[Rfam]
RNA: Small nucleolar RNA R21
Organism: Trema andersonii
RNA sequence: UAUCCCUGUGAUGAGUUAUCUAAUUAAGUUAAAAGUAGUAUGAAAUCACUUUGAUGUAAAAUUCACUCUGAGGGAUU
Numbered sequence: 001u002a003u004c005c006c007u008g009u010g011a012u013g014a015g016u017u018a019u020c021u022a023a024u025u026a027a028g029u030u031a032a033a034a035g036u037a038g039u040a041u042g043a044a045a046u047c048a049c050u051u052u053g054a055u056g057u058a059a060a061a062u063u064c065a066c067u068c069u070g071a072g073g074g075a076u077u
Stems, first nucleotide, its partner, number of pairs: 002076005